Notes:
mir-344 microRNA precursor family: a 71-nucleotide sequence from Mus musculus. Rfam 15.1 lists 339 matches to the family in 9 species. A search with the family's covariance model found it, with a score of 79 bits. On this family, see Linsen et al., BMC Genomics 2010: "Small RNA expression and strain specificity in the rat". Pairs were carried over by alignment from the consensus structure, which was predicted with RNAalifold.
[Rfam]
RNA sequence: UGAUCAGUCAGGCUUCUGGCUAUAUUUCAGGACUCAUCUGGUCCUGGGUAUAAUCAAAGCCCGACUGUAUG
Numbered sequence: 001u002g003a004u005c006a007g008u009c010a011g012g013c014u015u016c017u018g019g020c021u022a023u024a025u026u027u028c029a030g031g032a033c034u035c036a037u038c039u040g041g042u043c044c045u046g047g048g049u050a051u052a053a054u055c056a057a058a059g060c061c062c063g064a065c066u067g068u069a070u071g
Stems, first nucleotide, its partner, number of pairs: 007065003011061004017056003021052004027041005